[Rfam]
RNA sequence: GAGCUGUGAUGAUUAUUGCACAUAUUGUGAGACUUGGGUCUUCACAACUUUCUGGUGUAGGAUGAAACUCUGUGCUUCUGAGCUC
Numbered sequence: 001g002a003g004c005u006g007u008g009a010u011g012a013u014u015a016u017u018g019c020a021c022a023u024a025u026u027g028u029g030a031g032a033c034u035u036g037g038g039u040c041u042u043c044a045c046a047a048c049u050u051u052c053u054g055g056u057g058u059a060g061g062a063u064g065a066a067a068c069u070c071u072g073u074g075c076u077u078c079u080g081a082g083c084u085c
Stems, first nucleotide, its partner, number of pairs: 001085004

Shown here is an 85-nucleotide RNA sequence from Nicotiana tabacum, a member of the family "small nucleolar RNA snoR114". A search with the family's covariance model found it, with a score of 56 bits. A reference for the family is Chen and Wu (2009), "Mining small RNA sequencing data: a new approach to identify small nucleolar RNAs in Arabidopsis", Nucleic Acids Res. By type it is a C/D-box small nucleolar RNA. The family has 24 seed sequences and 1,645 matches in Rfam 15.1. The base pairs follow the family's consensus structure, which was predicted with RNAalifold. NCBI's taxonomy places the organism under Eukaryota, Viridiplantae, Embryophyta, Nicotianeae, Nicotiana.